[Rfam]
RNA sequence: AAAUAGCCCUGAUUGAAAUGAAAAGCGCUCGGUUUUGAUGACUAUUAAGUUUCGCACUAGCAACCACCGAGACUUGUAAUGUAAAGCAGGACUGACA
Numbered sequence: 001a002a003a004u005a006g007c008c009c010u011g012a013u014u015g016a017a018a019u020g021a022a023a024a025g026c027g028c029u030c031g032g033u034u035u036u037g038a039u040g041a042c043u044a045u046u047a048a049g050u051u052u053c054g055c056a057c058u059a060g061c062a063a064c065c066a067c068c069g070a071g072a073c074u075u076g077u078a079a080u081g082u083a084a085a086g087c088a089g090g091a092c093u094g095a096c097a
Base pairs, nucleotide, nucleotide: 009089010088011087013085014084018080019079023075024074025073028071029070030069031068032067035063036062

Rfam assigns this 97-nucleotide RNA from Pedobacter cryotolerans to the family "Flavo-1 RNA". NCBI's taxonomy places the organism under Bacteria, Bacteroidota, Sphingobacteriales, Sphingobacteriaceae, Pedobacter. The match comes from Rfam's covariance-model search (48 bits). It is annotated as a small RNA. The family's consensus secondary structure is taken from published work.